[Rfam]
RNA: Small nucleolar RNA SNORA23
Organism: Echeneis naucrates
RNA sequence: GGUGAAUGGUGUGCACAGUGUUGGUCUGUGUUAUGUGCUGUUGCUGGAUUGUGUUUUGCAGUCUUGGUAGCAAUGCUCACUCCACACCUGUAGCCAUAGAACAACUGGAGAUCAUAGUACUGGCCCUUGACGUUCUUUUUUUCAGACCUCUCACCAUCGGCCAGCCUCCAAAUUCUCCAACAUUU
Numbered sequence: 001g002g003u004g005a006a007u008g009g010u011g012u013g014c015a016c017a018g019u020g021u022u023g024g025u026c027u028g029u030g031u032u033a034u035g036u037g038c039u040g041u042u043g044c045u046g047g048a049u050u051g052u053g054u055u056u057u058g059c060a061g062u063c064u065u066g067g068u069a070g071c072a073a074u075g076c077u078c079a080c081u082c083c084a085c086a087c088c089u090g091u092a093g094c095c096a097u098a099g100a101a102c103a104a105c106u107g108g109a110g111a112u113c114a115u116a117g118u119a120c121u122g123g124c125c126c127u128u129g130a131c132g133u134u135c136u137u138u139u140u141u142u143c144a145g146a147c148c149u150c151u152c153a154c155c156a157u158c159g160g161c162c163a164g165c166c167u168c169c170a171a172a173u174u175c176u177c178c179a180a181c182a183u184u185u
Base pairs, nucleotide, nucleotide: 013091014090015089030080031079035077036075037074039072040071041070043068044067046064047063050060051059052058107178108177109176110175111174120164121163122162123161124160125159128156129155132147134146135145136144